[Rfam]
RNA sequence: ACGAAUCCUGCGGGAGAGAACGGUCCGCAACCCGUCGCCGAAGGCGCAACCGGCCCCGGAAACGCUCAGGCAAACGGACCGCAGGAGGAUG
Numbered sequence: 001a002c003g004a005a006u007c008c009u010g011c012g013g014g015a016g017a018g019a020a021c022g023g024u025c026c027g028c029a030a031c032c033c034g035u036c037g038c039c040g041a042a043g044g045c046g047c048a049a050c051c052g053g054c055c056c057c058g059g060a061a062a063c064g065c066u067c068a069g070g071c072a073a074a075c076g077g078a079c080c081g082c083a084g085g086a087g088g089a090u091g
Stems, first nucleotide, its partner, number of pairs: 006086008020035004037071003040067002044065003050058001

The record is a 91-nucleotide RNA sequence from Tepidamorphus gemmatus, which matches "Glycine riboswitch aptamer" in Rfam. Taxonomically the source falls in Tepidamorphus (Bacteria, Pseudomonadati, Hyphomicrobiales, Tepidamorphaceae). This family represents the bacterial glycine riboswitch. A search with the family's covariance model found it, with a score of 75 bits. Clan: Glycine riboswitch clan.